RNA sequence: ACCGACUAGGUGUUGGAUGAAAAAUGAAAAAUUUUUCUAGUGAUUUAUUUUAAAUAAGAAAAAAAAAGCCUUUUUAGGUUUUUUUUUUUUUUUUAUUUAUUUUAAAUACUUUUUAGAAAAUACUUGCUUCUUUCAGUACCUUAUGAGAAAUCAAAGUUUUUGGGU
Numbered sequence: 001a002c003c004g005a006c007u008a009g010g011u012g013u014u015g016g017a018u019g020a021a022a023a024a025u026g027a028a029a030a031a032u033u034u035u036u037c038u039a040g041u042g043a044u045u046u047a048u049u050u051u052a053a054a055u056a057a058g059a060a061a062a063a064a065a066a067a068g069c070c071u072u073u074u075u076a077g078g079u080u081u082u083u084u085u086u087u088u089u090u091u092u093u094u095a096u097u098u099a100u101u102u103u104a105a106a107u108a109c110u111u112u113u114u115a116g117a118a119a120a121u122a123c124u125u126g127c128u129u130c131u132u133u134c135a136g137u138a139c140c141u142u143a144u145g146a147g148a149a150a151u152c153a154a155a156g157u158u159u160u161u162g163g164g165u
Base pairs, nucleotide, nucleotide: 001165002164003163004158005157006156008141009140010139013136014135015134016133017132019130020129022128145152146151